[Rfam]
RNA sequence: AAGUUAUUGGGAAAGGUGUAGGGAUUAGACCCGUUUAAACCUUAGCAACCCUCCUCUAGGAGAAGGUGCUACGUUCUACCGUACUGUGUAUGGAAAGAUAACAG
Numbered sequence: 001a002a003g004u005u006a007u008u009g010g011g012a013a014a015g016g017u018g019u020a021g022g023g024a025u026u027a028g029a030c031c032c033g034u035u036u037a038a039a040c041c042u043u044a045g046c047a048a049c050c051c052u053c054c055u056c057u058a059g060g061a062g063a064a065g066g067u068g069c070u071a072c073g074u075u076c077u078a079c080c081g082u083a084c085u086g087u088g089u090a091u092g093g094a095a096a097g098a099u100a101a102c103a104g
Base pairs, nucleotide, nucleotide: 003102004101005100006099007098008097013043014042015041016040017039021032022031023030026078027077028076029075044070045069046068047067049066050065051062052061053060054059074096079093080092081091082090083089084088
Dot-bracket structure: ..((((((....(((((...(((..[[[[)))......)))))((((.((((((....))))..))))))...(]]]]((((((...))))))..)))))))..
Notes:
Rfam assigns this 104-nucleotide RNA sequence from Spongiivirga citrea to the family "SAM riboswitch aptamer (S box leader)". A search with the family's covariance model found it, with a score of 68 bits. Pairs were carried over by alignment from the consensus structure, which is taken from published work.